[Rfam]
RNA sequence: CCCGGUUGCCGUGGUUGCAGGCCCGGCCCGCCAGCUUGUCCGCUGACAGCGAGCCAUUAGGGCGGAGGGAAGCGGGUCCGUUGGUCCUUCAGGCACGAGG
Numbered sequence: 001c002c003c004g005g006u007u008g009c010c011g012u013g014g015u016u017g018c019a020g021g022c023c024c025g026g027c028c029c030g031c032c033a034g035c036u037u038g039u040c041c042g043c044u045g046a047c048a049g050c051g052a053g054c055c056a057u058u059a060g061g062g063c064g065g066a067g068g069g070a071a072g073c074g075g076g077u078c079c080g081u082u083g084g085u086c087c088u089u090c091a092g093g094c095a096c097g098a099g100g
Base pairs, nucleotide, nucleotide: 001099003097004096006095009092011090013086014085015084017081018080020078021077022076023075024072027069028068029067032065034063035062036061038055039053041051042050043049044048
The family of this 100-nucleotide sequence from Bos taurus is "mir-658 microRNA precursor family". Taxonomically the source falls in Bos (Eukaryota, Eumetazoa, Vertebrata, Tetrapoda). Rfam's curators put it in the seed alignment.